[Rfam]
RNA sequence: AUGUACCCCCCUGUACACUGCGGUUCCUGCACACUGUCCGCGCCCACCCGACAGUGACGCGCGACGUUUUGUUAGCC
Numbered sequence: 001a002u003g004u005a006c007c008c009c010c011c012u013g014u015a016c017a018c019u020g021c022g023g024u025u026c027c028u029g030c031a032c033a034c035u036g037u038c039c040g041c042g043c044c045c046a047c048c049c050g051a052c053a054g055u056g057a058c059g060c061g062c063g064a065c066g067u068u069u070u071g072u073u074a075g076c077c
Stems, first nucleotide, its partner, number of pairs: 002017005021036004048075001050073005

A member of the RNA family "Xanthomonas sRNA sX9" from Xanthomonas albilineans, 77 nucleotides long. The family has 16 seed sequences and 309 matches in Rfam 15.1. By type it is a small RNA. Lineage of the source: Bacteria > Gammaproteobacteria > Lysobacteraceae > Xanthomonas > Xanthomonas albilineans. On this family, see Schmidtke et al., Nucleic Acids Res 2011: "Genome-wide transcriptome analysis of the plant pathogen Xanthomonas identifies sRNAs with putative virulence functions".